The family of this 76-nucleotide RNA sequence from Sapajus apella is "mir-320 microRNA precursor family". Rfam 15.1 lists 659 matches to the family in 129 species. The source organism's lineage runs through Eukaryota, Tetrapoda, Amniota, Eutheria and Sapajus. It scores 78 bits against the family's covariance model. Rfam links the family to the GO terms positive regulation of stem cell proliferation, miRNA-mediated post-transcriptional gene silencing and negative regulation of gene expression.
RNA sequence: ACAAAGAAACACCUUCUCUUCCCGGUUCUUCCCAGAGUCAGGAAAAGCUGGGUUGAGAGGGUGGGAAAAAAAAGAA
Numbered sequence: 001a002c003a004a005a006g007a008a009a010c011a012c013c014u015u016c017u018c019u020u021c022c023c024g025g026u027u028c029u030u031c032c033c034a035g036a037g038u039c040a041g042g043a044a045a046a047g048c049u050g051g052g053u054u055g056a057g058a059g060g061g062u063g064g065g066a067a068a069a070a071a072a073a074g075a076a
Stems, first nucleotide, its partner, number of pairs: 014059005021052005029044004